The family of this 84-nucleotide RNA from Callithrix jacchus is "mir-548 microRNA precursor family". Lineage of the source: Eukaryota > Bilateria > Eutheria > Haplorrhini > Callithrix.

[Rfam]
RNA sequence: CAUUAGGUUGGUGCAAAAGCCAUUGUGGUUUUUGCAAUUAAUUUUAAUGGCAAAAACCACAAUGGCUUUUGCACCAACUUAAUA
Numbered sequence: 001c002a003u004u005a006g007g008u009u010g011g012u013g014c015a016a017a018a019g020c021c022a023u024u025g026u027g028g029u030u031u032u033u034g035c036a037a038u039u040a041a042u043u044u045u046a047a048u049g050g051c052a053a054a055a056a057c058c059a060c061a062a063u064g065g066c067u068u069u070u071g072c073a074c075c076a077a078c079u080u081a082a083u084a
Stems, first nucleotide, its partner, number of pairs: 002083034037048004